[Rfam]
RNA sequence: GCGCCUGUAGCUCAGCUGGAUAGAGUAUCUGACUACGAAUCAGGAGGUCGUGAGUUCGAAUCUCGCCAGGCGCA
Numbered sequence: 001g002c003g004c005c006u007g008u009a010g011c012u013c014a015g016c017u018g019g020a021u022a023g024a025g026u027a028u029c030u031g032a033c034u035a036c037g038a039a040u041c042a043g044g045a046g047g048u049c050g051u052g053a054g055u056u057c058g059a060a061u062c063u064c065g066c067c068a069g070g071c072g073c074a
Base pairs, nucleotide, nucleotide: 001073002072003071004070005069006068007067010026011025012024013023028044029043030042031041032040050066051065052064053063054062
RNA: tRNA